A member of the RNA family "TUC338" from Hipposideros armiger, 170 nucleotides long. On this family, see Braconi et al., Proc Natl Acad Sci U S A 2011: "Expression and functional role of a transcribed noncoding RNA with an ultraconserved element in hepatocellular carcinoma". Rfam classes the family as a cis-regulatory element. The source organism's lineage runs through Eukaryota, Bilateria, Chordata, Craniata and Hipposideros. It scores 148 bits against the family's covariance model. The base pairs follow the family's consensus structure, which was predicted with WAR.
[Rfam]
RNA sequence: UUGAAGGCGUGGAGACUGACGUCCUCUCUAUAACCAAAGAACAGGUAUGGCACAGGUAGCGGCAGUGCAGCUUUUCCACUGUCCCACCAAUGUGCCUCAGUCCUAGCCCGGGGGCCAUCCUCAGAGUCAAGGGGCUGUUCAGUCUCCAUGCCCUUCAAUCUUUGGCUCCU
Numbered sequence: 001u002u003g004a005a006g007g008c009g010u011g012g013a014g015a016c017u018g019a020c021g022u023c024c025u026c027u028c029u030a031u032a033a034c035c036a037a038a039g040a041a042c043a044g045g046u047a048u049g050g051c052a053c054a055g056g057u058a059g060c061g062g063c064a065g066u067g068c069a070g071c072u073u074u075u076c077c078a079c080u081g082u083c084c085c086a087c088c089a090a091u092g093u094g095c096c097u098c099a100g101u102c103c104u105a106g107c108c109c110g111g112g113g114g115c116c117a118u119c120c121u122c123a124g125a126g127u128c129a130a131g132g133g134g135c136u137g138u139u140c141a142g143u144c145u146c147c148a149u150g151c152c153c154u155u156c157a158a159u160c161u162u163u164g165g166c167u168c169c170u
Base pairs, nucleotide, nucleotide: 002157003156004155006152007151010148011147012146013145014144015143016142017141018140019139023134024133025132026131027130031129033127034126038104039103041101047097050095051094052093053092054091061083062082063081064080065079108124110122111121112120113119114118